A member of the RNA family "tRNA" from TM7 phylum sp. oral taxon 348, 74 nucleotides long.
[Rfam]
RNA sequence: GCACCUGUAGCUCAGCGGAUUAGAGCACUGGUCUUCGGAACCAGGUGUCGUACGUUCGAAUCGUACCAGGUGUA
Numbered sequence: 001g002c003a004c005c006u007g008u009a010g011c012u013c014a015g016c017g018g019a020u021u022a023g024a025g026c027a028c029u030g031g032u033c034u035u036c037g038g039a040a041c042c043a044g045g046u047g048u049c050g051u052a053c054g055u056u057c058g059a060a061u062c063g064u065a066c067c068a069g070g071u072g073u074a
Base pairs, nucleotide, nucleotide: 001073002072003071004070005069006068007067010026011025012024013023028044029043030042031041032040050066051065052064053063054062
Lineage of the source: Bacteria > Bacteria candidate phyla > Candidatus Saccharimonadota.